[Rfam]
RNA: Eukaryotic large subunit ribosomal RNA, nucleotides 1898 to 2383
RNA sequence: UAGAAUAAUGUAGAUAAGGGAAGUCGGCAAAAUAGUUCCGUAACUUCGGGAAAAGGAAUGGCUCUGAGGAUAGGGCAGUCGGGGCCUGCUCGGAAGGUCAAGUUGUUUUGAGUUUGAGGCCCCCAAAGGCUUCGGGCUCGAAACGACGACAACCCAACGGGUAGGUAAGGAGCAAUCCGCCCACUGCAAUGAACUAUCGACUCAGAACUGGAGCGGACAAGGGGAACCCGACAGUUUAAUAAAAACCAAGCAUUGUGAUGGCCUUAAAACGGUGUUGACACAAUGUGAUUUCUGCCCAGUGCUCUGAAUGUCAAAGUGAAGAAAUUCAACCAAGCGCGGGUAAACGGCGGGAGUAACUAUGACUCUCUUAAGGUAGCCAAAUGCCUCGUCAUCUAAUUAGUGACGCGCAUGAAUGGAUUAACGAGGUUCCCACUGUCCCUAUCUACUAUCUAGCGAACCCACAGCCAAGGGAACGGGCUUGGCACA
Dot-bracket structure: ((((.....(((((((.(((..............(((((....(....).....)))))((.(((((((((((.(((((.((.(((.((((....(((...((((((((((((((((((((......))))))))))))))))))))....)))....)))).))).............)).)))))......)))))..)))))).))(...).......(((((((((...((.........))...((((((((...(((.......))).....))))))))...(((.(((..((((((.(..(((.....((((....)))).....))))))))..)))))((((((.......))))))(...)...............(((((.......)))))..........)))....)).)))))))....))).)))))))..))))............(((((........)))))....